[Rfam]
Rfam assigns this 140-nucleotide sequence to the family "poplar-1 RNA".

RNA sequence: UUUGAGCCGAGGGGCCUAGCGGAAACGCCAGACGGCGCUGUCAGAAACGGUAGCAAGUGAGCCCGCAAUACGUCGAAAUCUGAACUGCGGCGUAAUGAAAUACUGUGUCCAUCGCAAGGGGCACGUCAGAUAGUAGCAAA
Numbered sequence: 001u002u003u004g005a006g007c008c009g010a011g012g013g014g015c016c017u018a019g020c021g022g023a024a025a026c027g028c029c030a031g032a033c034g035g036c037g038c039u040g041u042c043a044g045a046a047a048c049g050g051u052a053g054c055a056a057g058u059g060a061g062c063c064c065g066c067a068a069u070a071c072g073u074c075g076a077a078a079u080c081u082g083a084a085c086u087g088c089g090g091c092g093u094a095a096u097g098a099a100a101u102a103c104u105g106u107g108u109c110c111a112u113c114g115c116a117a118g119g120g121g122c123a124c125g126u127c128a129g130a131u132a133g134u135a136g137c138a139a140a
Stems, first nucleotide, its partner, number of pairs: 012064004019054002031042004066097002069094005080129004101135004106123005
The family's RNA type in Rfam is small RNA.